[Rfam]
RNA sequence: AUAUUGCAAUAAGAGUACAGGAUGAGAAGCUUUGUAGGUUCGAGCCGAGCGUAGCGAGACAGCGUUGUGCAAAGCACAACGACCCGCAGGGCGAGGCCGUAGGCCGAGUAAUCCUGUACGACCCACCA
Numbered sequence: 001a002u003a004u005u006g007c008a009a010u011a012a013g014a015g016u017a018c019a020g021g022a023u024g025a026g027a028a029g030c031u032u033u034g035u036a037g038g039u040u041c042g043a044g045c046c047g048a049g050c051g052u053a054g055c056g057a058g059a060c061a062g063c064g065u066u067g068u069g070c071a072a073a074g075c076a077c078a079a080c081g082a083c084c085c086g087c088a089g090g091g092c093g094a095g096g097c098c099g100u101a102g103g104c105c106g107a108g109u110a111a112u113c114c115u116g117u118a119c120g121a122c123c124c125a126c127c128a
Stems, first nucleotide, its partner, number of pairs: 015119007023111001033093002039088001041086002046056002063081006
The family of this 128-nucleotide RNA sequence from Arsenophonus nasoniae is "RtT RNA". Pairs were carried over by alignment from the consensus structure, which is taken from published work. The source organism's lineage runs through Bacteria, Pseudomonadati, Gammaproteobacteria, Enterobacterales and Arsenophonus. The match comes from Rfam's covariance-model search (100 bits). Rfam 15.1 lists 651 matches to the family in 204 species. About the family: This family represents a bacterial cis-regulatory element known as RtT RNA. The exact function of RtT is unknown although it is thought that it may be involved in changing the cellular response in relation to amino acid starvation. On this family, see Bosl and Kersten, Nucleic Acids Res 1991: "A novel RNA product of the tyrT operon of Escherichia coli". The family's RNA type in Rfam is cis-regulatory element.